[Rfam]
RNA: S10-Clostridia ribosomal protein leader
Organism: Turicibacter sp. H121
RNA sequence: CUUGAGCGUUGAAGCGAAAGGUUGCUGACACACCCGGCCGAUUUGCCAUGGCAAUGUGGCAGGUAAUUUUCGUGGAGCUAGUCUAUUCCUAAAAAUAGGCGA
Dot-bracket structure: .............(((.((((...(((.((((......................)))).)))....)))))))........((....(((......))).))